[Rfam]
RNA sequence: CGCUUCUGCCCUUCCUGGGCGUUUCCUCCCUAAUGAACUGCCGGGCCUUCGGGUCCGGCUUUUUUUUGGCCUGA
Numbered sequence: 001c002g003c004u005u006c007u008g009c010c011c012u013u014c015c016u017g018g019g020c021g022u023u024u025c026c027u028c029c030c031u032a033a034u035g036a037a038c039u040g041c042c043g044g045g046c047c048u049u050c051g052g053g054u055c056c057g058g059c060u061u062u063u064u065u066u067u068g069g070c071c072u073g074a
Stems, first nucleotide, its partner, number of pairs: 008020004040059008
Dot-bracket structure: .......((((.....))))...................((((((((....))))))))...............